[Rfam]
A member of the RNA family "c-di-AMP riboswitch aptamer (ydaO/yuaA leader)" from Dactylosporangium sucinum, 144 nucleotides long.
The base pairs follow the family's consensus structure.

RNA sequence: GCGGGGCUGCCGCCGAGUCGCAUGCGCGAGCCGGGGACCCAUCGUGUCCUGUUUGGGGUGAAUCCGCGCGCACCGAGCGCGGUAGGGGCGACUGUUCCGUUCCGAAUCCGUCAGCUAACCCGGUAGGCGGCCGAUGGAGGGAAC
Numbered sequence: 001g002c003g004g005g006g007c008u009g010c011c012g013c014c015g016a017g018u019c020g021c022a023u024g025c026g027c028g029a030g031c032c033g034g035g036g037a038c039c040c041a042u043c044g045u046g047u048c049c050u051g052u053u054u055g056g057g058g059u060g061a062a063u064c065c066g067c068g069c070g071c072a073c074c075g076a077g078c079g080c081g082g083u084a085g086g087g088g089c090g091a092c093u094g095u096u097c098c099g100u101u102c103c104g105a106a107u108c109c110g111u112c113a114g115c116u117a118a119c120c121c122g123g124u125a126g127g128c129g130g131c132c133g134a135u136g137g138a139g140g141g142a143a144c
Base pairs, nucleotide, nucleotide: 011129012128013127014126018029019028020027030124031123032122033121034120035119040055041054056109057108058107064082065081066080067079085103086102087101088100